RNA sequence: CGGGCAUGACCGCCGAAUCCGCGCAAGCGGAGCCGGGGACCCAAUCCCCCUUGGGGUGAAUCGACCCGCCGUACGGCACGGCGCGCCCCGGGCGCACCGCGACGGCGACGGGUCGUAGGGCCGUCUUCCAGGCCCGAACCCGUCAGCUAACCCGGUAGGCGGAGUGGAAGAAGGA
Numbered sequence: 001c002g003g004g005c006a007u008g009a010c011c012g013c014c015g016a017a018u019c020c021g022c023g024c025a026a027g028c029g030g031a032g033c034c035g036g037g038g039a040c041c042c043a044a045u046c047c048c049c050c051u052u053g054g055g056g057u058g059a060a061u062c063g064a065c066c067c068g069c070c071g072u073a074c075g076g077c078a079c080g081g082c083g084c085g086c087c088c089c090g091g092g093c094g095c096a097c098c099g100c101g102a103c104g105g106c107g108a109c110g111g112g113u114c115g116u117a118g119g120g121c122c123g124u125c126u127u128c129c130a131g132g133c134c135c136g137a138a139c140c141c142g143u144c145a146g147c148u149a150a151c152c153c154g155g156u157a158g159g160c161g162g163a164g165u166g167g168a169a170g171a172a173g174g175a
Stems, first nucleotide, its partner, number of pairs: 011161004018031003032156006042053002054141003062115007118135004

The record is a 175-nucleotide RNA sequence from Thermostaphylospora chromogena, which matches "c-di-AMP riboswitch aptamer (ydaO/yuaA leader)" in Rfam. The match comes from Rfam's covariance-model search (76 bits).